[Rfam]
RNA sequence: UGCCCGGAACGGCGUAAAACUACCACCACAAGGGACGCGACCCCGUAGAAAAGCGUA
Numbered sequence: 001u002g003c004c005c006g007g008a009a010c011g012g013c014g015u016a017a018a019a020c021u022a023c024c025a026c027c028a029c030a031a032g033g034g035a036c037g038c039g040a041c042c043c044c045g046u047a048g049a050a051a052a053g054c055g056u057a
Stems, first nucleotide, its partner, number of pairs: 001014004006024002009021001032044003
A member of the RNA family "GP20-b RNA", 57 nucleotides long. The base pairs follow the family's consensus structure, which is taken from published work. The sequence is in the family's curated seed alignment.